RNA sequence: CUCGCUGUGCGACCAGCGAUAGCCUAACAAGACAUGCAUCACUGGUAACGGUGGGGUGUGAAGCUCUUGUGACAAUGUAGCCCCUUGAUGGUGUGUAAUCGCUGCGAAGUGAAGCACAGAUGCUCGGAGCCGUACCGGGUUGAGGCG
Number, nucleotide and partner (000 for none) at each position: 001c000002u019003c018004g017005c016006u015007g014008u000009g000010c000011g000012a000013c000014c007015a006016g005017c004018g003019a002020u000021a000022g000023c000024c000025u000026a000027a000028c069029a068030a067031g066032a065033c060034a059035u058036g057037c056038a000039u054040c053041a052042c051043u050044g049045g000046u000047a000048a000049c044050g043051g042052u041053g040054g039055g000056g037057u036058g035059u034060g033061a000062a000063g000064c000065u032066c031067u030068u029069g028070u000071g000072a000073c000074a000075a000076u000077g000078u000079a000080g000081c000082c091083c090084c000085u000086u000087g000088a000089u000090g083091g082092u118093g117094u116095g115096u000097a000098a000099u000100c000101g000102c109103u108104g000105c000106g000107a000108a103109g102110u000111g000112a000113a000114g000115c095116a094117c093118a092119g000120a000121u000122g140123c139124u138125c137126g136127g135128a000129g000130c000131c000132g000133u000134a000135c127136c126137g125138g124139g123140u122141u000142g000143a000144g000145g000146c000147g000
RNA: Group II catalytic intron D1-D4-7